[Rfam]
RNA: Group II catalytic intron D1-D4-7
RNA sequence: CCUCUUAUUCCGUUAAGAGUAGCCUACCGAAGCGUGCGUAGUUGGCAACGACUGGGUGCGAAGCCUUCGGGACAAUAUGGCGAGGUCUUGAACAUCACAAGACGCAGCUGUUAGGCUGACUGACAAGGACAACGUAAAGUAACCGC
Number, nucleotide and partner (000 for none) at each position: 001c000002c019003u018004c017005u016006u015007a014008u000009u000010c000011c000012g000013u000014u007015a006016a005017g004018a003019g002020u000021a000022g000023c000024c000025u000026a000027c000028c069029g068030a067031a066032g065033c060034g059035u058036g057037c056038g000039u054040a053041g052042u051043u050044g049045g000046c000047a000048a000049c044050g043051a042052c041053u040054g039055g000056g037057u036058g035059c034060g033061a000062a000063g000064c000065c032066u031067u030068c029069g028070g000071g000072a000073c000074a000075a000076u000077a000078u000079g000080g000081c000082g000083a000084g000085g103086u102087c101088u100089u099090g098091a000092a000093c000094a000095u000096c000097a000098c090099a089100a088101g087102a086103c085104g121105c118106a117107g116108c115109u114110g000111u000112u000113a000114g109115g108116c107117u106118g105119a000120c000121u104122g000123a000124c000125a000126a000127g000128g000129a000130c139131a000132a000133c000134g000135u000136a000137a000138a000139g130140u000141a000142a000143c000144c000145g000146c000